[Rfam]
RNA sequence: GCAAAGGUAGCUUAACGGAUUAAAGCACAGCACUGAAAAUGCUUCAAAGGGAGUUAAAGUCCCUCCCUUAGCA
Numbered sequence: 001g002c003a004a005a006g007g008u009a010g011c012u013u014a015a016c017g018g019a020u021u022a023a024a025g026c027a028c029a030g031c032a033c034u035g036a037a038a039a040u041g042c043u044u045c046a047a048a049g050g051g052a053g054u055u056a057a058a059g060u061c062c063c064u065c066c067c068u069u070a071g072c073a
Stems, first nucleotide, its partner, number of pairs: 001072002004069004010026004029043004049065003053061001
Rfam assigns this 73-nucleotide RNA from Strongylocentrotus purpuratus to the family "tRNA". The organism belongs to Strongylocentrotus, within Eukaryota. Pairs were carried over by alignment from the consensus structure, which is taken from published work.